[Rfam]
RNA sequence: AUCUUUAGAUCGCUGAAUCUUCGGAACGGAGGAACCAAAUCAGGCAGCUUCUUAUCAUAGCUGCCCUUGAUUGGACGGGUUGGCACCGUCUUGGGGUGAAUCGGCGUUAAACGUCACGUCAGAAGGGGAACUCUCUUCCCCUAACCCGACAGCUAACUUCGUAAGCGUGCAGAGGGAAAGA
Numbered sequence: 001a002u003c004u005u006u007a008g009a010u011c012g013c014u015g016a017a018u019c020u021u022c023g024g025a026a027c028g029g030a031g032g033a034a035c036c037a038a039a040u041c042a043g044g045c046a047g048c049u050u051c052u053u054a055u056c057a058u059a060g061c062u063g064c065c066c067u068u069g070a071u072u073g074g075a076c077g078g079g080u081u082g083g084c085a086c087c088g089u090c091u092u093g094g095g096g097u098g099a100a101u102c103g104g105c106g107u108u109a110a111a112c113g114u115c116a117c118g119u120c121a122g123a124a125g126g127g128g129a130a131c132u133c134u135c136u137u138c139c140c141c142u143a144a145c146c147c148g149a150c151a152g153c154u155a156a157c158u159u160c161g162u163a164a165g166c167g168u169g170c171a172g173a174g175g176g177a178a179a180g181a
Base pairs, nucleotide, nucleotide: 011167012166013165014164018025019024026162027161028160029159030158031157036093037092094147095146096145102122104120125141126140127139128138